[Rfam]
RNA sequence: GGCCAAGUUUUCUAGGGUUCCGCAAACAACCGGUUUGGUCUGGUCCAAGAGAAAACGCUUUGCACACACGCAAAGAUACACGGAAGGAUAAAAGCCUGGGAGAU
Numbered sequence: 001g002g003c004c005a006a007g008u009u010u011u012c013u014a015g016g017g018u019u020c021c022g023c024a025a026a027c028a029a030c031c032g033g034u035u036u037g038g039u040c041u042g043g044u045c046c047a048a049g050a051g052a053a054a055a056c057g058c059u060u061u062g063c064a065c066a067c068a069c070g071c072a073a074a075g076a077u078a079c080a081c082g083g084a085a086g087g088a089u090a091a092a093a094g095c096c097u098g099g100g101a102g103a104u
Stems, first nucleotide, its partner, number of pairs: 007056006015046002020043002022040001023037005057077001058075006079099001081102001085097003